[Rfam]
RNA sequence: UUUGGCUAGUUGUCAGGCCAUAGCAGAAGCAUUCAUUGUGCAGCCAUGUCAGAUUGCUACAAAUCUGCAAAUUUGGCU
Numbered sequence: 001u002u003u004g005g006c007u008a009g010u011u012g013u014c015a016g017g018c019c020a021u022a023g024c025a026g027a028a029g030c031a032u033u034c035a036u037u038g039u040g041c042a043g044c045c046a047u048g049u050c051a052g053a054u055u056g057c058u059a060c061a062a063a064u065c066u067g068c069a070a071a072u073u074u075g076g077c078u
Base pairs, nucleotide, nucleotide: 013046016045017044018043022078023077024076026074027073028072029041030040031039050067051066052065053064054063055062

Mammalian CPEB3 ribozyme: a 78-nucleotide sequence from Alligator sinensis. A search with the family's covariance model found it, with a score of 45 bits. The organism belongs to Alligator, within Eukaryota. Its family is annotated with RNA nuclease activity in the Gene Ontology. Rfam describes the family as follows. The mammalian CPEB3 ribozyme is a self cleaving RNA located in the second intron of the CPEB3 gene which belongs to a family of genes regulating messenger RNA polyadenylation. Pairs were carried over by alignment from the consensus structure, which is taken from published work.